[Rfam]
RNA sequence: UGGCGCCCAACGUGGGGCCUGGAAACUGGGAAAAGCGUGACGGACACAAUGGAAGAAAAAAGGGGUGCGCAUCCAUGGAAAUAAUUCGGAGAUGCCGCGGGAGCCUGCCAUGACCAAGCCAAAGGUAAGUUGGUCAUUCAAUCAUGGGGCAAGAAUUAAGCCAGCCUCAGAUUUAUGUGAUACAGUUAAGAGAACCUCUGCAGGCAAGAGGAGUAAAGGUUAAAACUGAGGAUUUAUUUCAUUUCUUUGAUUUUGUAAAGGACAUUUGUCCCU
Numbered sequence: 001u002g003g004c005g006c007c008c009a010a011c012g013u014g015g016g017g018c019c020u021g022g023a024a025a026c027u028g029g030g031a032a033a034a035g036c037g038u039g040a041c042g043g044a045c046a047c048a049a050u051g052g053a054a055g056a057a058a059a060a061a062g063g064g065g066u067g068c069g070c071a072u073c074c075a076u077g078g079a080a081a082u083a084a085u086u087c088g089g090a091g092a093u094g095c096c097g098c099g100g101g102a103g104c105c106u107g108c109c110a111u112g113a114c115c116a117a118g119c120c121a122a123a124g125g126u127a128a129g130u131u132g133g134u135c136a137u138u139c140a141a142u143c144a145u146g147g148g149g150c151a152a153g154a155a156u157u158a159a160g161c162c163a164g165c166c167u168c169a170g171a172u173u174u175a176u177g178u179g180a181u182a183c184a185g186u187u188a189a190g191a192g193a194a195c196c197u198c199u200g201c202a203g204g205c206a207a208g209a210g211g212a213g214u215a216a217a218g219g220u221u222a223a224a225a226c227u228g229a230g231g232a233u234u235u236a237u238u239u240c241a242u243u244u245c246u247u248u249g250a251u252u253u254u255g256u257a258a259a260g261g262a263c264a265u266u267u268g269u270c271c272c273u
Base pairs, nucleotide, nucleotide: 006030007029008028012026013025037047038046085124086123088120089119094115096112097111099109100108130152131151132150135149137148138147139146140145157200158199160196208248209247210246211245212244213243217235218234219233220232221231258273260271261270262269263268
RNA: Mason-Pfizer monkey virus packaging signal